Background
This 67-nucleotide sequence from Lederbergia galactosidilytica belongs to the Rfam family "Bacillaceae-1 RNA".
RNA sequence: GUUUUUAGUAGAACAGCUAAUGUCACUACUUCCUACAGAGACGCCGUUCUGACCCGCAUCUUGCGGG
Numbered sequence: 001g002u003u004u005u006u007a008g009u010a011g012a013a014c015a016g017c018u019a020a021u022g023u024c025a026c027u028a029c030u031u032c033c034u035a036c037a038g039a040g041a042c043g044c045c046g047u048u049c050u051g052a053c054c055c056g057c058a059u060c061u062u063g064c065g066g067g
Stems, first nucleotide, its partner, number of pairs: 011049004016044002026038002053067005

Notes: The match comes from Rfam's covariance-model search (37 bits). The organism belongs to Lederbergia, within Bacteria.